[Rfam]
RNA sequence: GUUUGUGGAUAGUGUUCAGCACCAAGGACUGGUGUGUUAACCUGUUUGUGGAUGGUGUUCAGCACCAGGGACAGGUAUGUUAACCU
Numbered sequence: 001g002u003u004u005g006u007g008g009a010u011a012g013u014g015u016u017c018a019g020c021a022c023c024a025a026g027g028a029c030u031g032g033u034g035u036g037u038u039a040a041c042c043u044g045u046u047u048g049u050g051g052a053u054g055g056u057g058u059u060c061a062g063c064a065c066c067a068g069g070g071a072c073a074g075g076u077a078u079g080u081u082a083a084c085c086u
Stems, first nucleotide, its partner, number of pairs: 001072002010067001012065005018059007026047001028045002031042003
mir-2060 microRNA precursor family: an 86-nucleotide sequence from Branchiostoma floridae.